[Rfam]
RNA sequence: GAUCCGCAGCCGGUGCGGGUCAAAGAACACCGGCAACUGCUUCCGAUUUGUCAGCAGCUGUAGCCGAGUUCAGCGGCCUGGUGUUCACCGCCGCCAUUGCAGAUGGCAGGGCGCACGCCCCACGCGGUAUCGUACUGACC
Numbered sequence: 001g002a003u004c005c006g007c008a009g010c011c012g013g014u015g016c017g018g019g020u021c022a023a024a025g026a027a028c029a030c031c032g033g034c035a036a037c038u039g040c041u042u043c044c045g046a047u048u049u050g051u052c053a054g055c056a057g058c059u060g061u062a063g064c065c066g067a068g069u070u071c072a073g074c075g076g077c078c079u080g081g082u083g084u085u086c087a088c089c090g091c092c093g094c095c096a097u098u099g100c101a102g103a104u105g106g107c108a109g110g111g112c113g114c115a116c117g118c119c120c121c122a123c124g125c126g127g128u129a130u131c132g133u134a135c136u137g138a139c140c
Base pairs, nucleotide, nucleotide: 001021002020003019004018005017006016007015008014025086026085027084028083029082030081031080032079033061034060035059037057038056039055040054041053063077064076065075066074087128088127089126090125091124093107094106095105096104097103109120110119111118112117
This 140-nucleotide sequence belongs to the Rfam family "xerDC RNA". The sequence is in the family's curated seed alignment.